Record summary
A member of the RNA family "L17 ribosomal protein downstream element" from Enterococcus faecium, 74 nucleotides long. By type it is a cis-regulatory element. The organism belongs to Enterococcus faecium, within Bacteria. The family's consensus secondary structure is taken from published work.

RNA sequence: AGAGUGUUAUGAUGUUGGAAGAUAUUUUUCCGAGUCUAGCUCAGCGCUGCUCCUCAAGCGAAUAUCGCUUGGGG
Numbered sequence: 001a002g003a004g005u006g007u008u009a010u011g012a013u014g015u016u017g018g019a020a021g022a023u024a025u026u027u028u029u030c031c032g033a034g035u036c037u038a039g040c041u042c043a044g045c046g047c048u049g050c051u052c053c054u055c056a057a058g059c060g061a062a063u064a065u066c067g068c069u070u071g072g073g074g
Base pairs, nucleotide, nucleotide: 002042003041004040005039011036012035013034017031018030019029020028021027052074053073054072055071056070057069058068059067060066